[Rfam]
Rfam assigns this 137-nucleotide sequence from Oncorhynchus kisutch to the family "Small nucleolar RNA SNORA8".
Its family is annotated with RNA processing and nucleolus in the Gene Ontology.
The family is grouped with related families in Rfam's "SNORA8 clan".
Nucleotides: 137
Base pairs, nucleotide, nucleotide: 002060003059004058005057006056007055014054015053018046019045020044021043023041024039025038026037027036028035064125065124066123068121070118071117072116073115080106081105082104083103
Number, partner (000 for none) and nucleotide at each position: 001000c002060g003059c004058a005057c006056u007055g008000c009000a010000u011000g012000g013000u014054a015053u016000c017000u018046g019045c020044a021043g022000c023041c024039a025038g026037c027036u028035g029000c030000u031000a032000c033000u034000c035028c036027g037026g038025u039024u040000g041023g042000a043021c044020u045019g046018u047000u048000c049000a050000u051000u052000a053015g054014u055007c056006a057005g058004u059003g060002c061000a062000a063000g064125a065124g066123a067000a068121a069000c070118u071117c072116g073115g074000c075000a076000u077000a078000u079000g080106g081105c082104a083103u084000c085000g086000u087000u088000g089000g090000u091000c092000u093000c094000c095000a096000u097000g098000u099000c100000u101000u102000u103083g104082u105081g106080u107000g108000u109000g110000g111000c112000g113000u114000c115073c116072u117071g118070g119000u120000a121068u122000a123066u124065c125064u126000g127000u128000c129000g130000a131000g132000a133000c134000a135000u136000u137000u

Record summary: Rfam describes the family as follows. ACA8 is a member of the H/ACA class of snoRNA that guide the sites of modification of uridines to pseudouridines.